[Rfam]
RNA sequence: GUGACAGAAGAGAGUGAGCACACAUAGUAUUUUCUUGUAUGGUGUUUAAUACUCGAAACUAUGUGUGCUCACUCUCUACCUGUCAC
Numbered sequence: 001g002u003g004a005c006a007g008a009a010g011a012g013a014g015u016g017a018g019c020a021c022a023c024a025u026a027g028u029a030u031u032u033u034c035u036u037g038u039a040u041g042g043u044g045u046u047u048a049a050u051a052c053u054c055g056a057a058a059c060u061a062u063g064u065g066u067g068c069u070c071a072c073u074c075u076c077u078a079c080c081u082g083u084c085a086c
Base pairs, nucleotide, nucleotide: 001086002085003084004083005082006081007080010076011075012074013073014072015071016070017069018068019067020066021065023063024062025061